[Rfam]
RNA sequence: UCACGCGCAGCGGGAGAGUCCGGAUCCCGGACGCCGAAGGAGCAACUUCUCCCUCAGAAUCUCUCAGGCCCACGUACCGCUGUAGCUCA
Numbered sequence: 001u002c003a004c005g006c007g008c009a010g011c012g013g014g015a016g017a018g019u020c021c022g023g024a025u026c027c028c029g030g031a032c033g034c035c036g037a038a039g040g041a042g043c044a045a046c047u048u049c050u051c052c053c054u055c056a057g058a059a060u061c062u063c064u065c066a067g068g069c070c071c072a073c074g075u076a077c078c079g080c081u082g083u084a085g086c087u088c089a
Base pairs, nucleotide, nucleotide: 007083008082009081010080011079012078013077019031020030021029022028033069034068035067036065037064040063041062042061046057047056
The record is an 89-nucleotide RNA from Actinoplanes sp. OR16, which matches "Glycine riboswitch aptamer" in Rfam. The match comes from Rfam's covariance-model search (60 bits). The pairing is the family consensus, mapped onto this sequence.